A member of the RNA family "Lysine riboswitch aptamer" from Philodulcilactobacillus myokonensis, 173 nucleotides long. It scores 115 bits against the family's covariance model. Riboswitches are metabolite binding domains within certain messenger RNAs that serve as precision sensors for their corresponding targets.
RNA sequence: AUCUAAAGAAGGGGCGCAAAAUUCAAAAGUAAGUUUUGUGAAUUAAAAAGUAAUGUUGAUCAGAACUGAAAGGGAAUUUUGCCGAAACGAAAGGAUGCUUCUUCAUCCUUUUUGUUGGGGUCUAGUUAAAUAAAUUAGACACUGUCGCAGUGAUGCGGAGUACUUUUAAGGUG
Numbered sequence: 001a002u003c004u005a006a007a008g009a010a011g012g013g014g015c016g017c018a019a020a021a022u023u024c025a026a027a028a029g030u031a032a033g034u035u036u037u038g039u040g041a042a043u044u045a046a047a048a049a050g051u052a053a054u055g056u057u058g059a060u061c062a063g064a065a066c067u068g069a070a071a072g073g074g075a076a077u078u079u080u081g082c083c084g085a086a087a088c089g090a091a092a093g094g095a096u097g098c099u100u101c102u103u104c105a106u107c108c109u110u111u112u113u114g115u116u117g118g119g120g121u122c123u124a125g126u127u128a129a130a131u132a133a134a135u136u137a138g139a140c141a142c143u144g145u146c147g148c149a150g151u152g153a154u155g156c157g158g159a160g161u162a163c164u165u166u167u168a169a170g171g172u173g
Base pairs, nucleotide, nucleotide: 007167008166009165010164011163016082017081018080019079020078021077022076023075024074032067033066034065035064036063037062038061086116087115088114089113090111091110092109093108094107095106096105097104117143118142120140121139122138123137124136125135126134127133145158146157147156148155149154